[Rfam]
RNA sequence: AGAACGCACAUUAAUUAUCCCUAGGGCCAUGGGAUAAACAAAAACCUUGAAAAAACAAGUUAGCACACCCUAGAAUGGUUCUAGCACGAUUACUAACCUAUGGCUCUGAUACCAAUUGAUGGGAAAAACUC
Numbered sequence: 001a002g003a004a005c006g007c008a009c010a011u012u013a014a015u016u017a018u019c020c021c022u023a024g025g026g027c028c029a030u031g032g033g034a035u036a037a038a039c040a041a042a043a044a045c046c047u048u049g050a051a052a053a054a055a056c057a058a059g060u061u062a063g064c065a066c067a068c069c070c071u072a073g074a075a076u077g078g079u080u081c082u083a084g085c086a087c088g089a090u091u092a093c094u095a096a097c098c099u100a101u102g103g104c105u106c107u108g109a110u111a112c113c114a115a116u117u118g119a120u121g122g123g124a125a126a127a128a129c130u131c
Stems, first nucleotide, its partner, number of pairs: 009121008022108012048086002053080002056077002060073004
The record is a 131-nucleotide sequence from Vitis vinifera, which matches "MIR845_2 microRNA precursor family" in Rfam. Pairs were carried over by alignment from the consensus structure, which was predicted with WAR. For this family Rfam cites "The grapevine genome sequence suggests ancestral hexaploidization in major angiosperm phyla" (Jaillon et al., Nature, 2007). Lineage of the source: Eukaryota > Tracheophyta > Euphyllophyta > Spermatophyta > Vitis.